[Rfam]
RNA: 7SK RNA
Organism: Polioptila caerulea
RNA sequence: GGAUAUGAGGGUGAUCUGGCUGUGAGAUCUGAUAUGCCUUUGAUUGCAUGGGUUGAUCUGACUAAUCUAGCUAGUUUAGGCAGGUGUUCCCUUUCUUCCUUGACAUUACAUGUGUAUUCCUCCUGAUGCUGUGUGCUUUGUUAAUGAGGACAGACACCCCAAAAGACAUGGUAUUGUUCAUUUGUCAAGGGUGUGUGGUAGCUGUGCUCCCCUGCUGGAAGCUCUAAGUAAGCUCAAGGUCCAUUUGUAGAUGAAGGCAGGGUAGUCAAGCAUCCAGUACUGAAGACACAUCCAAAUGAGAAACUGCAUGCUGCAGUUUGCCGGUGUCU
Numbered sequence: 001g002g003a004u005a006u007g008a009g010g011g012u013g014a015u016c017u018g019g020c021u022g023u024g025a026g027a028u029c030u031g032a033u034a035u036g037c038c039u040u041u042g043a044u045u046g047c048a049u050g051g052g053u054u055g056a057u058c059u060g061a062c063u064a065a066u067c068u069a070g071c072u073a074g075u076u077u078a079g080g081c082a083g084g085u086g087u088u089c090c091c092u093u094u095c096u097u098c099c100u101u102g103a104c105a106u107u108a109c110a111u112g113u114g115u116a117u118u119c120c121u122c123c124u125g126a127u128g129c130u131g132u133g134u135g136c137u138u139u140g141u142u143a144a145u146g147a148g149g150a151c152a153g154a155c156a157c158c159c160c161a162a163a164a165g166a167c168a169u170g171g172u173a174u175u176g177u178u179c180a181u182u183u184g185u186c187a188a189g190g191g192u193g194u195g196u197g198g199u200a201g202c203u204g205u206g207c208u209c210c211c212c213u214g215c216u217g218g219a220a221g222c223u224c225u226a227a228g229u230a231a232g233c234u235c236a237a238g239g240u241c242c243a244u245u246u247g248u249a250g251a252u253g254a255a256g257g258c259a260g261g262g263u264a265g266u267c268a269a270g271c272a273u274c275c276a277g278u279a280c281u282g283a284a285g286a287c288a289c290a291u292c293c294a295a296a297u298g299a300g301a302a303a304c305u306g307c308a309u310g311c312u313g314c315a316g317u318u319u320g321c322c323g324g325u326g327u328c329u
Base pairs, nucleotide, nucleotide: 001109003107006102007101008100009099010098011097013094014093018091019090024088025087027085028084029083030082031081033079035074037070042067043066044065045064046062117171118170121166122165123140125138126137128136129135141162142161148159149158201271202270203269207265208264210262211261212260213259214258215257222253225250228248229247230246231245232244294329296327300322303317304316305315306314307313